[Rfam]
RNA sequence: AAAUGAGAUAGAGGCGCGGAUGCGAUGACCCUCCGGGAGCCGGCAGGCUGAGAACGGAGGCAAGGCAAGUCCGCCGAACUCCUCGUCCGGGCGCGGGCGUGGGGUGGGUCCGCGGGGAAUACCCACGGGACUGUCUGCGGUUUUUCACUGCAGGGGCGCUAUCCGCUUA
Numbered sequence: 001a002a003a004u005g006a007g008a009u010a011g012a013g014g015c016g017c018g019g020a021u022g023c024g025a026u027g028a029c030c031c032u033c034c035g036g037g038a039g040c041c042g043g044c045a046g047g048c049u050g051a052g053a054a055c056g057g058a059g060g061c062a063a064g065g066c067a068a069g070u071c072c073g074c075c076g077a078a079c080u081c082c083u084c085g086u087c088c089g090g091g092c093g094c095g096g097g098c099g100u101g102g103g104g105u106g107g108g109u110c111c112g113c114g115g116g117g118a119a120u121a122c123c124c125a126c127g128g129g130a131c132u133g134u135c136u137g138c139g140g141u142u143u144u145u146c147a148c149u150g151c152a153g154g155g156g157c158g159c160u161a162u163c164c165g166c167u168u169a
Base pairs, nucleotide, nucleotide: 007163008162009161010160011159016074017073018072019071020070021069024066030060031059032058033057034056035055078105079104080103081102082101084099085098086097087096088095089094106132107131109129110128111127112126114124115123116122134154135153136152137151138150139149140148
A member of the RNA family "Lysine riboswitch aptamer" from Oscillibacter sp. CAG:155, 169 nucleotides long.
The match comes from Rfam's covariance-model search (82 bits).
Rfam links the family to the GO term lysine biosynthetic process.
Taxonomically the source falls in Oscillibacter (Bacteria, Bacillota, Eubacteriales, Oscillospiraceae).